[Rfam]
RNA: Small nucleolar RNA snoR31/Z110/Z27
Organism: Protea cynaroides
RNA sequence: UUGAUCAAGUGAUGAAAUCAUAAAUUAAAUCUUAGGACACUUUCCUACACAGCUCUAUCCAGAGUUGUGGAUGAGAAAGACAUUUCUAUUCUGAUGAUGAA
Numbered sequence: 001u002u003g004a005u006c007a008a009g010u011g012a013u014g015a016a017a018u019c020a021u022a023a024a025u026u027a028a029a030u031c032u033u034a035g036g037a038c039a040c041u042u043u044c045c046u047a048c049a050c051a052g053c054u055c056u057a058u059c060c061a062g063a064g065u066u067g068u069g070g071a072u073g074a075g076a077a078a079g080a081c082a083u084u085u086c087u088a089u090u091c092u093g094a095u096g097a098u099g100a101a
Base pairs, nucleotide, nucleotide: 001101002100004098005097006096007095045052046051